[Rfam]
RNA sequence: GCCGAAGUGGUGGAAUUGGUAGACACGCUAGACUUAGGAUCUAGUACCGCGAGGUGUGGAGGUUCAAGUCCUCUCUUCGGUA
Numbered sequence: 001g002c003c004g005a006a007g008u009g010g011u012g013g014a015a016u017u018g019g020u021a022g023a024c025a026c027g028c029u030a031g032a033c034u035u036a037g038g039a040u041c042u043a044g045u046a047c048c049g050c051g052a053g054g055u056g057u058g059g060a061g062g063u064u065c066a067a068g069u070c071c072u073c074u075c076u077u078c079g080g081u082a
Base pairs, nucleotide, nucleotide: 001081002080003079004078005077006076007075010026011025012024028044029043030042031041032040058074059073060072061071062070